RNA sequence: GCCCUGUGGUUACUGGAUGCCAUUGUAUAGGUAAAGCUCUCCAGUGGAAGUAAAGGGGCGAGAGCAGUCCUGUGAUUUAUGCUUGGGGACUGUUUCAGCAGCCACUAUAGCCCAGUCACUGAGACAUGA
Numbered sequence: 001g002c003c004c005u006g007u008g009g010u011u012a013c014u015g016g017a018u019g020c021c022a023u024u025g026u027a028u029a030g031g032u033a034a035a036g037c038u039c040u041c042c043a044g045u046g047g048a049a050g051u052a053a054a055g056g057g058g059c060g061a062g063a064g065c066a067g068u069c070c071u072g073u074g075a076u077u078u079a080u081g082c083u084u085g086g087g088g089a090c091u092g093u094u095u096c097a098g099c100a101g102c103c104a105c106u107a108u109a110g111c112c113c114a115g116u117c118a119c120u121g122a123g124a125c126a127u128g129a
Base pairs, nucleotide, nucleotide: 001059002058003057004056007050010047011046012045013044014043015042016041017040019037020036023033070121072119073118074117075116076115077114081111082110084107085106086105088103090101091100092099093098
RNA: Small nucleolar RNA SNORA84
Organism: Erinaceus europaeus